[Rfam]
RNA sequence: CCGACUGUUCCGUCAAUCGUAACCUACCGGUGCAUGCUGGAUUGGUAACGGUCUGGCGUGAAGCCACCGGAACAACGUAACCCGUUCAUUGAACGACGUCGCGCUCGCAAGAAAGU
Number, nucleotide and partner (000 for none) at each position: 001c000002c019003g018004a017005c000006u015007g014008u000009u000010c000011c000012g000013u000014c007015a006016a000017u004018c003019g002020u000021a000022a000023c000024c000025u000026a000027c000028c069029g068030g067031u066032g065033c060034a059035u058036g057037c056038u055039g054040g053041a052042u051043u050044g049045g000046u000047a000048a000049c044050g043051g042052u041053c040054u039055g038056g037057c036058g035059u034060g033061a000062a000063g000064c000065c032066a031067c030068c029069g028070g000071a000072a000073c000074a000075a000076c000077g000078u000079a000080a000081c000082c000083c095084g094085u093086u092087c091088a000089u000090u000091g087092a086093a085094c084095g083096a000097c000098g000099u000100c000101g000102c000103g000104c000105u112106c111107g000108c000109a000110a000111g106112a105113a000114a000115g000116u000
Rfam assigns this 116-nucleotide sequence from Paraburkholderia humisilvae to the family "Group II catalytic intron D1-D4-7". The literature on the family includes a 2001 paper in Trends Genet by Bonen and Vogel, "The ins and outs of group II introns". Rfam 15.1 lists 1,296 matches to the family in 705 species. Pairs were carried over by alignment from the consensus structure. NCBI's taxonomy places the organism under Bacteria, Pseudomonadati, Burkholderiales, Burkholderiaceae, Paraburkholderia.